[Rfam]
A member of the RNA family "PyrR binding site" from Ornithinibacillus halophilus, 137 nucleotides long. Lineage of the source: Bacteria > Bacillota > Bacilli > Caryophanales > Ornithinibacillus.
RNA sequence: GUUACCUUUAAUUCAGUCCCGUGAGACUGGCAAGGUGGAGCAGACUAGGUCUGUUUAUCAAGAAAUGGUGGAAAAGUGUAUUUCCAUGGUUUCUACGUGCGUGUACACCUUGCCUUUGAUGGCAAGGUGUUUUUUAU
Number, nucleotide and partner (000 for none) at each position: 001g000002u000003u037004a036005c035006c034007u033008u032009u000010a000011a000012u000013u030014c029015a028016g027017u026018c025019c000020c000021g000022u000023g000024a000025g018026a017027c016028u015029g014030g013031c000032a008033a007034g006035g005036u004037g003038g000039a000040g000041c000042a000043g000044a000045c000046u000047a000048g000049g000050u000051c000052u000053g000054u000055u000056u000057a000058u000059c000060a000061a094062g093063a092064a091065a090066u089067g000068g087069u086070g085071g084072a083073a082074a081075a000076g000077u000078g000079u000080a000081u074082u073083u072084c071085c070086a069087u068088g000089g066090u065091u064092u063093c062094u061095a000096c000097g000098u000099g000100c000101g134102u000103g132104u000105a130106c129107a128108c127109c126110u125111u124112g123113c122114c121115u000116u000117u000118g000119a000120u000121g114122g113123c112124a111125a110126g109127g108128u107129g106130u105131u000132u103133u000134u101135u000136a000137u000
The base pairs follow the family's consensus structure, which is taken from published work. It is annotated as a cis-regulatory element. The match comes from Rfam's covariance-model search (60 bits).